This 150-nucleotide sequence from Rhamnella rubrinervis belongs to the Rfam family "Small nucleolar RNA snoR136". The family has 8 seed sequences and 452 matches in Rfam 15.1. Rfam links the family to the GO terms RNA processing and nucleolus. Rfam classes the family as an H/ACA-box small nucleolar RNA.
Nucleotides: 150
Base pairs, nucleotide, nucleotide: 001080004076005075008072009071010069011068012067013066016063017062020059027057028056029055031053033051036050037049038048090143091142092141093140094139095138096137098134099133103132104131105130106129107128113121
Number, partner (000 for none) and nucleotide at each position: 001080u002000g003000g004076g005075c006000u007000u008072c009071a010069a011068g012067a013066a014000a015000u016063u017062g018000a019000u020059u021000u022000g023000g024000u025000u026000u027057u028056g029055a030000u031053u032000c033051u034000g035000c036050a037049u038048a039000a040000a041000c042000u043000g044000a045000u046000u047000u048038u049037g050036u051033a052000a053031g054000u055029u056028u057027g058000u059020g060000u061000g062017u063016g064000a065000u066013u067012u068011c069010u070000g071009u072008g073000a074000a075005g076004c077000g078000a079000a080001a081000g082000c083000a084000g085000a086000u087000u088000c089000u090143g091142u092141u093140c094139c095138u096137c097000u098134c099133g100000c101000u102000a103132u104131c105130c106129a107128g108000u109000g110000c111000u112000u113121c114000c115000u116000u117000u118000u119000c120000u121113g122000u123000u124000g125000c126000a127000u128107u129106u130105g131104g132103a133099c134098g135000u136000u137096g138095g139094g140093g141092a142091a143090c144000u145000a146000c147000a148000u149000u150000c
For this family Rfam cites "Mining small RNA sequencing data: a new approach to identify small nucleolar RNAs in Arabidopsis" (Chen and Wu, Nucleic Acids Res, 2009).